RNA sequence: UUGUUAUCAAGAAAGGCUGAGGGAACAGGCCCGAAGACGCCUUAGCAACCGCUCUGCCCGGCGCAUGUUAAAGUAUACUGUAAUAAUUUAUUUGAUAUGCCGGGGAGGAAGGUGCUACGUCCUGCUCCAGUAGUCCGGAGGAAGAUAAAUA
Numbered sequence: 001u002u003g004u005u006a007u008c009a010a011g012a013a014a015g016g017c018u019g020a021g022g023g024a025a026c027a028g029g030c031c032c033g034a035a036g037a038c039g040c041c042u043u044a045g046c047a048a049c050c051g052c053u054c055u056g057c058c059c060g061g062c063g064c065a066u067g068u069u070a071a072a073g074u075a076u077a078c079u080g081u082a083a084u085a086a087u088u089u090a091u092u093u094g095a096u097a098u099g100c101c102g103g104g105g106a107g108g109a110a111g112g113u114g115c116u117a118c119g120u121c122c123u124g125c126u127c128c129a130g131u132a133g134u135c136c137g138g139a140g141g142a143a144g145a146u147a148a149a150u151a
Stems, first nucleotide, its partner, number of pairs: 001151001004148005013043005021032003026124004044116004049112002052107003120143001125140004130135001